Overview
A member of the RNA family "Cia-dependent small RNA csRNA1" from Streptococcus sp. DD10, 99 nucleotides long. On this family, see Halfmann et al., Mol Microbiol 2007: "Identification of the genes directly controlled by the response regulator CiaR in Streptococcus pneumoniae: five out of 15 promoters drive expression of small non-coding RNAs".
RNA sequence: AUCAAAUAAAGACCUCCUAAACUUUAUUUGAUGAAUCCUAAAACUUUUCUUUUUCAUAAUAAUCUCCCUAUAAAAGCUACCGGAUCUGGUGGCUUUUUC
Numbered sequence: 001a002u003c004a005a006a007u008a009a010a011g012a013c014c015u016c017c018u019a020a021a022c023u024u025u026a027u028u029u030g031a032u033g034a035a036u037c038c039u040a041a042a043a044c045u046u047u048u049c050u051u052u053u054u055c056a057u058a059a060u061a062a063u064c065u066c067c068c069u070a071u072a073a074a075a076g077c078u079a080c081c082g083g084a085u086c087u088g089g090u091g092g093c094u095u096u097u098u099c
Stems, first nucleotide, its partner, number of pairs: 001032011073096009